Rfam assigns this 591-nucleotide RNA sequence from Sphaerisporangium album to the family "Saccharopolyspora sRNA 389".
The base pairs follow the family's consensus structure, which was predicted with RNAfold.
A reference for the family is Liu et al. (2013), "Prediction and characterization of small non-coding RNAs related to secondary metabolites in Saccharopolyspora erythraea", PLoS One.

[Rfam]
RNA sequence: GGCGCGCCGAGGUGCGGUGCAGGAAGUCGGUCCGGGAGGCGCGGACCUUGCGGUGGGCGCGGGCGACCUUCGCUUUGGGCUUGGCCCGGUUGGCGCUGCCGCGCUGCUUGCGGGCCAUGCGCCGCUGGUAGCGGGCAAGGUUACGUUCCCGCUUCGCCAGCGUGGGCGGGUUUGCGAUCUUCUCCCCGUCGGAGGUGACCGCGAAGUCCUUGAUCCCGAGAUCGACGCCGGCCACGGCACCGGUCGCGGGGGCCUGCGCGGGCUCAUCGACAUCGACGGCGAGGGAGAGGUACCAGCGCCCGCACGGGUCACGGGAGACGGUCACCGUGGUCGGGUCGAUCGACGCCGGAUCGACACCGGGCCACGACCACACGAACUCAAGCGGGGUGUCCAUCUUCGCCAGGUACAGCCGCCCGUCCCGCCAGCGGAACCCCGACCGGGUGUAUUCGGCGCUCUGGCGUCCGGUGCGGGACUUGUAACGCGGGUACUUGGCCCGUUUGGCGAAGAAGUUGGAGAACGCGACCUGCUGGUGGCGGAUCGCCUGCUGCAACGGCACCGACGACACCUCGUUGAGCCACGACAGUUCCUCGG
Numbered sequence: 001g002g003c004g005c006g007c008c009g010a011g012g013u014g015c016g017g018u019g020c021a022g023g024a025a026g027u028c029g030g031u032c033c034g035g036g037a038g039g040c041g042c043g044g045a046c047c048u049u050g051c052g053g054u055g056g057g058c059g060c061g062g063g064c065g066a067c068c069u070u071c072g073c074u075u076u077g078g079g080c081u082u083g084g085c086c087c088g089g090u091u092g093g094c095g096c097u098g099c100c101g102c103g104c105u106g107c108u109u110g111c112g113g114g115c116c117a118u119g120c121g122c123c124g125c126u127g128g129u130a131g132c133g134g135g136c137a138a139g140g141u142u143a144c145g146u147u148c149c150c151g152c153u154u155c156g157c158c159a160g161c162g163u164g165g166g167c168g169g170g171u172u173u174g175c176g177a178u179c180u181u182c183u184c185c186c187c188g189u190c191g192g193a194g195g196u197g198a199c200c201g202c203g204a205a206g207u208c209c210u211u212g213a214u215c216c217c218g219a220g221a222u223c224g225a226c227g228c229c230g231g232c233c234a235c236g237g238c239a240c241c242g243g244u245c246g247c248g249g250g251g252g253c254c255u256g257c258g259c260g261g262g263c264u265c266a267u268c269g270a271c272a273u274c275g276a277c278g279g280c281g282a283g284g285g286a287g288a289g290g291u292a293c294c295a296g297c298g299c300c301c302g303c304a305c306g307g308g309u310c311a312c313g314g315g316a317g318a319c320g321g322u323c324a325c326c327g328u329g330g331u332c333g334g335g336u337c338g339a340u341c342g343a344c345g346c347c348g349g350a351u352c353g354a355c356a357c358c359g360g361g362c363c364a365c366g367a368c369c370a371c372a373c374g375a376a377c378u379c380a381a382g383c384g385g386g387g388u389g390u391c392c393a394u395c396u397u398c399g400c401c402a403g404g405u406a407c408a409g410c411c412g413c414c415c416g417u418c419c420c421g422c423c424a425g426c427g428g429a430a431c432c433c434c435g436a437c438c439g440g441g442u443g444u445a446u447u448c449g450g451c452g453c454u455c456u457g458g459c460g461u462c463c464g465g466u467g468c469g470g471g472a473c474u475u476g477u478a479a480c481g482c483g484g485g486u487a488c489u490u491g492g493c494c495c496g497u498u499u500g501g502c503g504a505a506g507a508a509g510u511u512g513g514a515g516a517a518c519g520c521g522a523c524c525u526g527c528u529g530g531u532g533g534c535g536g537a538u539c540g541c542c543u544g545c546u547g548c549a550a551c552g553g554c555a556c557c558g559a560c561g562a563c564a565c566c567u568c569g570u571u572g573a574g575c576c577a578c579g580a581c582a583g584u585u586c587c588u589c590g591g
Base pairs, nucleotide, nucleotide: 002015003014004013005012016576017575018574020572021571022033023032024031039064040063042061043060044058045054046053047052065142066141067140068139069138070137072136073135074134075133079129080128081127084125085124087121088120091117092116094112095111098107099106145209148206150203151202152201156199158197159196161194163193165190166189167188168187169186174184176182177181217569219567220566222564227263228262229261231259232258233256234255236253238251240249241248265561267559268558269557273553274552277547278546279545280544281543283541285539286538291532292531293530294529295528296527297526298525301521302520303519306347307346309343310342315337316336319333320332321331322330355467356466357465358464359463360461362458363457364456368452369450372447376442377441378440379439382438383435384434385433386432387431388430391427395425396424398421399420403415471511472510473509474508475507482500483499484498485497486496578590579589580588
Rfam links the family to the GO term regulation of secondary metabolite biosynthetic process.
Rfam 15.1 lists 93 matches to the family in 60 species.
It scores 108 bits against the family's covariance model.
The source organism's lineage runs through Bacteria, Actinomycetes, Streptosporangiales, Streptosporangiaceae and Sphaerisporangium.